This 380-nucleotide RNA sequence belongs to the Rfam family "Pseudomonas sRNA CrcZ". Rfam 15.1 lists 127 matches to the family in 96 species. Rfam links the family to the GO term carbon catabolite repression of transcription. The match comes from Rfam's covariance-model search (318 bits).
[Rfam]
RNA sequence: ACAACAACAAUAACAACGCUUGAAACCUCAACAAUAAAAACAAUACAGAACGGCUCCAGCCCAACAAGAACAACAACGCGGAGGCGCAGCUAACUGAUUCUUUUGGAGAGGAUUUGCCUUUGGGGUUCGCCCCACGACCAGGCUGAGAACAACAAAAACUGCACUAAAGCAGCGCCUGCACUGGUUGGAUCACGGAAAGAUCAUGGCAGCAUCAGCAUCCAAAGCAAUCCGUUUGCUCCUGGUACCCGGCUUGGGAUACCUCAAACGGGCUUACAACAAGAACAACAGGCCCGGCAUAACAAUAAAAACAAAGCACGCACCAUUUUGGGGGGGAGCUUCGGCUCCCCCAGUAGCUUCACCCCUCUCAUCAUCCCCAGCCU
Numbered sequence: 001a002c003a004a005c006a007a008c009a010a011u012a013a014c015a016a017c018g019c020u021u022g023a024a025a026c027c028u029c030a031a032c033a034a035u036a037a038a039a040a041c042a043a044u045a046c047a048g049a050a051c052g053g054c055u056c057c058a059g060c061c062c063a064a065c066a067a068g069a070a071c072a073a074c075a076a077c078g079c080g081g082a083g084g085c086g087c088a089g090c091u092a093a094c095u096g097a098u099u100c101u102u103u104u105g106g107a108g109a110g111g112a113u114u115u116g117c118c119u120u121u122g123g124g125g126u127u128c129g130c131c132c133c134a135c136g137a138c139c140a141g142g143c144u145g146a147g148a149a150c151a152a153c154a155a156a157a158a159c160u161g162c163a164c165u166a167a168a169g170c171a172g173c174g175c176c177u178g179c180a181c182u183g184g185u186u187g188g189a190u191c192a193c194g195g196a197a198a199g200a201u202c203a204u205g206g207c208a209g210c211a212u213c214a215g216c217a218u219c220c221a222a223a224g225c226a227a228u229c230c231g232u233u234u235g236c237u238c239c240u241g242g243u244a245c246c247c248g249g250c251u252u253g254g255g256a257u258a259c260c261u262c263a264a265a266c267g268g269g270c271u272u273a274c275a276a277c278a279a280g281a282a283c284a285a286c287a288g289g290c291c292c293g294g295c296a297u298a299a300c301a302a303u304a305a306a307a308a309c310a311a312a313g314c315a316c317g318c319a320c321c322a323u324u325u326u327g328g329g330g331g332g333g334a335g336c337u338u339c340g341g342c343u344c345c346c347c348c349a350g351u352a353g354c355u356u357c358a359c360c361c362c363u364c365u366c367a368u369c370a371u372c373c374c375c376a377g378c379c380u
Stems, first nucleotide, its partner, number of pairs: 051086002054083004101224005115217003135187007159172004242259003246255001267292004311356004328351001329348008